[Rfam]
RNA sequence: CCUCGGCGACAGCCAUGUCUGCCCGAUACCGGGACACGGCACCACCUCCAUCGUUUCCGCCGCCAUGGACGU
Numbered sequence: 001c002c003u004c005g006g007c008g009a010c011a012g013c014c015a016u017g018u019c020u021g022c023c024c025g026a027u028a029c030c031g032g033g034a035c036a037c038g039g040c041a042c043c044a045c046c047u048c049c050a051u052c053g054u055u056u057c058c059g060c061c062g063c064c065a066u067g068g069a070c071g072u
Base pairs, nucleotide, nucleotide: 007071008070017040018039019038020036021035023033024032051069052068055065

A member of the RNA family "Pseudomonas sRNA P10" from Pseudomonas sp. MRSN 12121, 72 nucleotides long. The match comes from Rfam's covariance-model search (46 bits). For this family Rfam cites "Identification of 17 Pseudomonas aeruginosa sRNAs and prediction of sRNA-encoding genes in 10 diverse pathogens using the bioinformatic tool sRNAPredict2" (Livny et al., Nucleic Acids Res, 2006). The family's RNA type in Rfam is small RNA. The family's consensus secondary structure was predicted with WAR. The family has 8 seed sequences and 62 matches in Rfam 15.1.